[Rfam]
RNA sequence: GGCCUAAACCCGGUUUUGCCGGGCAUGGCUCAAAAACCCAUCGCUGAUACUGAACCCCGUGUUCAGCAACUCAGCGAUGGGCUAUAUCGGGAAACCGGUAUAGGGCCGCAAGGCCU
Dot-bracket structure: ((((....((((((...))))))...))))......((((((((((((.((((((.....)))))).)..))))))))))).((((((((....))))))))(((((....)))))
Numbered sequence: 001g002g003c004c005u006a007a008a009c010c011c012g013g014u015u016u017u018g019c020c021g022g023g024c025a026u027g028g029c030u031c032a033a034a035a036a037c038c039c040a041u042c043g044c045u046g047a048u049a050c051u052g053a054a055c056c057c058c059g060u061g062u063u064c065a066g067c068a069a070c071u072c073a074g075c076g077a078u079g080g081g082c083u084a085u086a087u088c089g090g091g092a093a094a095c096c097g098g099u100a101u102a103g104g105g106c107c108g109c110a111a112g113g114c115c116u
Stems, first nucleotide, its partner, number of pairs: 001030004009023006037081011048068001050066006083102008103116005